Source information: Shown here is a 370-nucleotide RNA from Chelativorans sp. BNC1, a member of the family "Alphaproteobacteria transfer-messenger RNA". Pairs were carried over by alignment from the consensus structure, which is taken from published work.
RNA sequence: CCCCUUUCAUCGGCCGGAUCUCAUGCCUAUAUUGGGUCUGUCGGUUUCGGCCGACUAUGGCGAUAAACGGACGAUGCAAUAAGCCAUUCGGACCCGGGGGCGGUACCCGGCGCCUCCACCAGAAACCGCCGGCCCAUGCGAUGCGAAGGGCGGCUUCUGAUGGGGGCGAAAUAGGAUCGACGAGGGUGUAAAGAUCGGACUUUCGCUCGGCAUGGUACCACCGUUAUCGGACCGAACCUUAUAGUUGCCAACGACAACUAUGCGGAAGCACGUCUCGCUGCUUAAUGCAGCGCGAUAGCUUCAAUUCAAGUCUCAGGCCGUCGCAGGCCUGAGCGGGGUUCGGAGGCACCUGGCAACAGAAGCCUCCACU
Numbered sequence: 001c002c003c004c005u006u007u008c009a010u011c012g013g014c015c016g017g018a019u020c021u022c023a024u025g026c027c028u029a030u031a032u033u034g035g036g037u038c039u040g041u042c043g044g045u046u047u048c049g050g051c052c053g054a055c056u057a058u059g060g061c062g063a064u065a066a067a068c069g070g071a072c073g074a075u076g077c078a079a080u081a082a083g084c085c086a087u088u089c090g091g092a093c094c095c096g097g098g099g100g101c102g103g104u105a106c107c108c109g110g111c112g113c114c115u116c117c118a119c120c121a122g123a124a125a126c127c128g129c130c131g132g133c134c135c136a137u138g139c140g141a142u143g144c145g146a147a148g149g150g151c152g153g154c155u156u157c158u159g160a161u162g163g164g165g166g167c168g169a170a171a172u173a174g175g176a177u178c179g180a181c182g183a184g185g186g187u188g189u190a191a192a193g194a195u196c197g198g199a200c201u202u203u204c205g206c207u208c209g210g211c212a213u214g215g216u217a218c219c220a221c222c223g224u225u226a227u228c229g230g231a232c233c234g235a236a237c238c239u240u241a242u243a244g245u246u247g248c249c250a251a252c253g254a255c256a257a258c259u260a261u262g263c264g265g266a267a268g269c270a271c272g273u274c275u276c277g278c279u280g281c282u283u284a285a286u287g288c289a290g291c292g293c294g295a296u297a298g299c300u301u302c303a304a305u306u307c308a309a310g311u312c313u314c315a316g317g318c319c320g321u322c323g324c325a326g327g328c329c330u331g332a333g334c335g336g337g338g339u340u341c342g343g344a345g346g347c348a349c350c351u352g353g354c355a356a357c358a359g360a361a362g363c364c365u366c367c368a369c370u
Stems, first nucleotide, its partner, number of pairs: 040055005059207005069201002072197004084186002088183003094110005111168007208223003213234003218230002336351004342367006
NCBI's taxonomy places the organism under Bacteria, Pseudomonadati, Pseudomonadota, Phyllobacteriaceae, Chelativorans.
The family's RNA type in Rfam is non-coding RNA gene.